Source information
This 74-nucleotide sequence from Plectus sambesii belongs to the Rfam family "mir-124 microRNA precursor family". For this family Rfam cites "Computational identification of Drosophila microRNA genes" (Lai et al., Genome Biol, 2003). The source organism's lineage runs through Eukaryota, Opisthokonta, Plectida, Plectidae and Plectus. It scores 57 bits against the family's covariance model.

Nucleotides: 074
Base pairs, nucleotide, nucleotide: 003072004071005070006069009066010065011064012063013062014061015060016059019057020056021055023052024051025050026049027048028047029046
Number, partner (000 for none) and nucleotide at each position: 001000a002000g003072c004071g005070c006069u007000g008000a009066g010065c011064a012063u013062u014061c015060a016059c017000c018000a019057g020056u021055g022000a023052c024051u025050u026049u027048g028047g029046u030000g031000a032000c033000g034000a035000u036000a037000a038000a039000a040000a041000g042000g043000g044000c045000a046029a047028c048027u049026a050025a051024g052023g053000c054000a055021c056020g057019c058000g059016g060015u061014g062013a063012a064011u065010g066009c067000c068000a069006a070005g071004c072003g073000a074000g